[Rfam]
RNA sequence: AUACUUACCUUAAGAUGCCAGGGGAGAUCAAGAAGUCCUACUGGCCAAGUAUGCAUCUUCAAUUGAGGGAUGCUAUGCGGUUUUCUUCAUAGAUCAAUUGACGUAAGCUUCCUCGACGAUUGCACAUACAUGCGAAGAGUGUACUUGCUGACGUUCCGUUUCCUCGUUCUGGCAAUAUGUGGGAUUCUUAUCCUGUGUUUUGUUAGGGCCCUUUUUUCCUUCUGCCUGGAGAAGUAUGACACUGAGUACAAUCAGUGUUGGGGGAGCUGGGAUUACUCAAGAGAGUUUUAUCGGAAAGUUGUUCUCUCGAAAGGACUAUUACAAUAGUUGUGACUCGUGAUGACUGUUGAUUCCCUGGGAUUAAGUUUCUGGGAGAAGGUUGAAUGGUUUAUAAUAUGAGUUGUGAUGUAAUAGGCCGUUUGAAGAACAUGAUUCGAAAGAAUCGAAACUUUUGGUUAAGACGUGUUUCACCUCGGUGAAAUAAAAUCGUUGAGCGAUCUUGGUAGGAACGGGUGGGUCUUUUAAUUUUUGAUUUAUUUC
Numbered sequence: 001a002u003a004c005u006u007a008c009c010u011u012a013a014g015a016u017g018c019c020a021g022g023g024g025a026g027a028u029c030a031a032g033a034a035g036u037c038c039u040a041c042u043g044g045c046c047a048a049g050u051a052u053g054c055a056u057c058u059u060c061a062a063u064u065g066a067g068g069g070a071u072g073c074u075a076u077g078c079g080g081u082u083u084u085c086u087u088c089a090u091a092g093a094u095c096a097a098u099u100g101a102c103g104u105a106a107g108c109u110u111c112c113u114c115g116a117c118g119a120u121u122g123c124a125c126a127u128a129c130a131u132g133c134g135a136a137g138a139g140u141g142u143a144c145u146u147g148c149u150g151a152c153g154u155u156c157c158g159u160u161u162c163c164u165c166g167u168u169c170u171g172g173c174a175a176u177a178u179g180u181g182g183g184a185u186u187c188u189u190a191u192c193c194u195g196u197g198u199u200u201u202g203u204u205a206g207g208g209c210c211c212u213u214u215u216u217u218c219c220u221u222c223u224g225c226c227u228g229g230a231g232a233a234g235u236a237u238g239a240c241a242c243u244g245a246g247u248a249c250a251a252u253c254a255g256u257g258u259u260g261g262g263g264g265a266g267c268u269g270g271g272a273u274u275a276c277u278c279a280a281g282a283g284a285g286u287u288u289u290a291u292c293g294g295a296a297a298g299u300u301g302u303u304c305u306c307u308c309g310a311a312a313g314g315a316c317u318a319u320u321a322c323a324a325u326a327g328u329u330g331u332g333a334c335u336c337g338u339g340a341u342g343a344c345u346g347u348u349g350a351u352u353c354c355c356u357g358g359g360a361u362u363a364a365g366u367u368u369c370u371g372g373g374a375g376a377a378g379g380u381u382g383a384a385u386g387g388u389u390u391a392u393a394a395u396a397u398g399a400g401u402u403g404u405g406a407u408g409u410a411a412u413a414g415g416c417c418g419u420u421u422g423a424a425g426a427a428c429a430u431g432a433u434u435c436g437a438a439a440g441a442a443u444c445g446a447a448a449c450u451u452u453u454g455g456u457u458a459a460g461a462c463g464u465g466u467u468u469c470a471c472c473u474c475g476g477u478g479a480a481a482u483a484a485a486a487u488c489g490u491u492g493a494g495c496g497a498u499c500u501u502g503g504u505a506g507g508a509a510c511g512g513g514u515g516g517g518u519c520u521u522u523u524a525a526u527u528u529u530u531g532a533u534u535u536a537u538u539u540c
Stems, first nucleotide, its partner, number of pairs: 010525003013520003017045005022039004046147009056138005071130002152511006160265006166209007179196006219234005239258007

Shown here is a 540-nucleotide RNA from Torulaspora delbrueckii, a member of the family "Yeast U1 spliceosomal RNA". On this family, see Zwieb, Nucleic Acids Res 1997: "The uRNA database". Taxonomically the source falls in Torulaspora (Eukaryota, saccharomyceta, Saccharomycetales, Saccharomycetaceae). U1 is a small nuclear RNA (snRNA) component of the spliceosome (involved in pre-mRNA splicing). Rfam classes the family as a spliceosomal small nuclear RNA.